[Rfam]
RNA sequence: UUAGGACUAUGAAGCAUAAGGUUGCGAUACACUAAAAAGAGUUGUUAGUUAGUUAUCGGUUUUUAUGUGGAGUCUGGUUUAAGAAAAAACCAA
Numbered sequence: 001u002u003a004g005g006a007c008u009a010u011g012a013a014g015c016a017u018a019a020g021g022u023u024g025c026g027a028u029a030c031a032c033u034a035a036a037a038a039g040a041g042u043u044g045u046u047a048g049u050u051a052g053u054u055a056u057c058g059g060u061u062u063u064u065a066u067g068u069g070g071a072g073u074c075u076g077g078u079u080u081a082a083g084a085a086a087a088a089a090c091c092a093a
Base pairs, nucleotide, nucleotide: 014068015067016066018064019063020062021061025058026057027056028055029054075092076091077090078089079088080087
RNA: S10-Clostridia ribosomal protein leader
Organism: Mycoplasma sp. 1654_15